Shown here is a 145-nucleotide RNA from Trichonephila clavipes, a member of the family "Small nucleolar RNA SNORA79".
It scores 61 bits against the family's covariance model.
On this family, see Schattner et al., RNA 2006: "A computational screen for mammalian pseudouridylation guide H/ACA RNAs".
Rfam links the family to the GO terms RNA processing and nucleolus.
About the family: ACA65 (SNORA79) is a member of the H/ACA class of snoRNAs that guide the sites of modification of uridines to pseudouridines. This snoRNA was identified by computational screening and its expression in mouse experimentally verified by Northern blot and primer extension analysis.
NCBI's taxonomy places the organism under Eukaryota, Eumetazoa, Bilateria, Ecdysozoa, Trichonephila.
The base pairs follow the family's consensus structure, which was predicted with RNAalifold.

RNA sequence: UGAUGGUCAUUCCACAUCCUUUUAGGAGUGAUGAAAGGGUGAUUUUAGGCCAUCAUAGAGUAAUUGGAAUCACUUCACCCAUGUUAACUUUGCAAGUAUCUACUUGUAUUUGUAGUUAUCAAUGGUUUUGCUGUUUCCUACACCU
Numbered sequence: 001u002g003a004u005g006g007u008c009a010u011u012c013c014a015c016a017u018c019c020u021u022u023u024a025g026g027a028g029u030g031a032u033g034a035a036a037g038g039g040u041g042a043u044u045u046u047a048g049g050c051c052a053u054c055a056u057a058g059a060g061u062a063a064u065u066g067g068a069a070u071c072a073c074u075u076c077a078c079c080c081a082u083g084u085u086a087a088c089u090u091u092g093c094a095a096g097u098a099u100c101u102a103c104u105u106g107u108a109u110u111u112g113u114a115g116u117u118a119u120c121a122a123u124g125g126u127u128u129u130g131c132u133g134u135u136u137c138c139u140a141c142a143c144c145u
Base pairs, nucleotide, nucleotide: 001055002054003053004052005051006050007049008048015041016040017039018038020036021035022034023033067137068136069135071133072132079125080124081123082121083120085118086117087116088115094111095110096109097108098107
Dot-bracket structure: ((((((((......((((.((((.........)))).))))......))))))))...........(((.((......(((((.((((.....(((((........)))))...)))).)).)))......)).)))........